A member of the RNA family "SAM/SAH riboswitch aptamer" from Pseudorhodobacter turbinis, 49 nucleotides long. The source organism's lineage runs through Bacteria, Pseudomonadati, Pseudomonadota, Rhodobacterales and Pseudorhodobacter. The match comes from Rfam's covariance-model search (60 bits).

Nucleotides: 049
Base pairs, nucleotide, nucleotide: 004031005030006029007028008027009026010025013022014021015048016047017046019045020044
Number, partner (000 for none) and nucleotide at each position: 001000c002000a003000a004031c005030c006029g007028u008027c009026a010025c011000a012000a013022c014021g015048g016047c017046u018000u019045c020044c021014u022013g023000g024000c025010g026009u027008g028007g029006c030005g031004g032000a033000u034000u035000a036000c037000a038000c039000c040000u041000a042000a043000c044020g045019g046017a047016g048015c049000a